[Rfam]
RNA sequence: UCCAGCGGUAGUCAGCUACCCGUUGCUGCUCAGUGCCUGGGAUAGUGUUAUGCUGCUGGGAGAGAAACGUGCUGCUGAGUGGCUGCUGGCACCGCCGGUGCUGUUCUGGUGCUGGAGGGUGCCAGGUCUGGCAGCACUCUGCAUGCUGGAGAGUGGAGUAACUCCUCAGUGGAGUUAAUCCUAGAUUGGAUGCAGACAAU
Numbered sequence: 001u002c003c004a005g006c007g008g009u010a011g012u013c014a015g016c017u018a019c020c021c022g023u024u025g026c027u028g029c030u031c032a033g034u035g036c037c038u039g040g041g042a043u044a045g046u047g048u049u050a051u052g053c054u055g056c057u058g059g060g061a062g063a064g065a066a067a068c069g070u071g072c073u074g075c076u077g078a079g080u081g082g083c084u085g086c087u088g089g090c091a092c093c094g095c096c097g098g099u100g101c102u103g104u105u106c107u108g109g110u111g112c113u114g115g116a117g118g119g120u121g122c123c124a125g126g127u128c129u130g131g132c133a134g135c136a137c138u139c140u141g142c143a144u145g146c147u148g149g150a151g152a153g154u155g156g157a158g159u160a161a162c163u164c165c166u167c168a169g170u171g172g173a174g175u176u177a178a179u180c181c182u183a184g185a186u187u188g189g190a191u192g193c194a195g196a197c198a199a200u
Stems, first nucleotide, its partner, number of pairs: 001060009011051002015046004020041001021039002025036002069137009084126001088123006095115002097112001099111004139195006146188001155181003159177007